About this RNA:
The record is a 200-nucleotide sequence from Medicago truncatula, which matches "MIR2619 microRNA precursor family" in Rfam. Lineage of the source: Eukaryota > Streptophytina > Pentapetalae > fabids > Medicago. Its family is annotated with miRNA-mediated post-transcriptional gene silencing and RISC complex in the Gene Ontology.
RNA sequence: AAACAACCCCUUAUGUAUCGAAUCUUUGGCAGUUUUGGCCCCCAAGGCCACUUUUGACUUAGUCUUCGCUGACGUGGUACCCAUAUCCCUUAAGUGAGGUGUCACGUGUCGACCAUUGUGGGUACCAUGUCAGCGAAGAGUAAGUUAAAAGUGGCAUUGGGGCCAAAACUGCCAAAGAUCCAAUACAUAGGGGGCUGUUU
Numbered sequence: 001a002a003a004c005a006a007c008c009c010c011u012u013a014u015g016u017a018u019c020g021a022a023u024c025u026u027u028g029g030c031a032g033u034u035u036u037g038g039c040c041c042c043c044a045a046g047g048c049c050a051c052u053u054u055u056g057a058c059u060u061a062g063u064c065u066u067c068g069c070u071g072a073c074g075u076g077g078u079a080c081c082c083a084u085a086u087c088c089c090u091u092a093a094g095u096g097a098g099g100u101g102u103c104a105c106g107u108g109u110c111g112a113c114c115a116u117u118g119u120g121g122g123u124a125c126c127a128u129g130u131c132a133g134c135g136a137a138g139a140g141u142a143a144g145u146u147a148a149a150a151g152u153g154g155c156a157u158u159g160g161g162g163c164c165a166a167a168a169c170u171g172c173c174a175a176a177g178a179u180c181c182a183a184u185a186c187a188u189a190g191g192g193g194g195c196u197g198u199u200u
Stems, first nucleotide, its partner, number of pairs: 001200002004197002007194002012189007020181001022179019042160004072130002075127011